Source information: The record is a 351-nucleotide RNA sequence from Oceanispirochaeta sp. M1, which matches "Bacterial RNase P class A" in Rfam.
RNA sequence: CUAACAGGUCAGACUGCCGCUGCCGGGUUCUCCCGGCAGAGGAAAGUCCGGGCUCCAUAGAGAGUGAUGCCGGGUAAUGCCCGGGCGUUCCUUCGGGAAUGACAGAAAGUGUCGCAGAAAAUAUACCGCCUUCUGAUUUAUCAGCGGGUAAGGGUGAAAUGGCGGGGUAAGAGCCCACCGCUCCUCCGGUAACGGAGGAGGCAUGACAAACCUCAUCAGGAGCAAGAUCAAGCAGCAGGCCGGGUUUCUCGCCUAAAGCCUGCGGGUAGAUUGCUGAAGAUCCGAAGCAAUUCGGAGAUCAGAUAGAUGGCAGUCCGUCGACAGAACCCGGCUUACCGACCUGUUUUUUUA
Numbered sequence: 001c002u003a004a005c006a007g008g009u010c011a012g013a014c015u016g017c018c019g020c021u022g023c024c025g026g027g028u029u030c031u032c033c034c035g036g037c038a039g040a041g042g043a044a045a046g047u048c049c050g051g052g053c054u055c056c057a058u059a060g061a062g063a064g065u066g067a068u069g070c071c072g073g074g075u076a077a078u079g080c081c082c083g084g085g086c087g088u089u090c091c092u093u094c095g096g097g098a099a100u101g102a103c104a105g106a107a108a109g110u111g112u113c114g115c116a117g118a119a120a121a122u123a124u125a126c127c128g129c130c131u132u133c134u135g136a137u138u139u140a141u142c143a144g145c146g147g148g149u150a151a152g153g154g155u156g157a158a159a160u161g162g163c164g165g166g167g168u169a170a171g172a173g174c175c176c177a178c179c180g181c182u183c184c185u186c187c188g189g190u191a192a193c194g195g196a197g198g199a200g201g202c203a204u205g206a207c208a209a210a211c212c213u214c215a216u217c218a219g220g221a222g223c224a225a226g227a228u229c230a231a232g233c234a235g236c237a238g239g240c241c242g243g244g245u246u247u248c249u250c251g252c253c254u255a256a257a258g259c260c261u262g263c264g265g266g267u268a269g270a271u272u273g274c275u276g277a278a279g280a281u282c283c284g285a286a287g288c289a290a291u292u293c294g295g296a297g298a299u300c301a302g303a304u305a306g307a308u309g310g311c312a313g314u315c316c317g318u319c320g321a322c323a324g325a326a327c328c329c330g331g332c333u334u335a336c337c338g339a340c341c342u343g344u345u346u347u348u349u350u351a
Stems, first nucleotide, its partner, number of pairs: 003345008012315007020039008044334003048331005053222004060250004065218005070084005085103001086101006104213002109211002111207003126153002128149004133144004161179002164176003180202001181200008226272004235263006242254004281296006

By type it is a ribozyme. Rfam links the family to the GO terms dimeric ribonuclease P complex, tRNA processing and ribonuclease P activity. It scores 283 bits against the family's covariance model.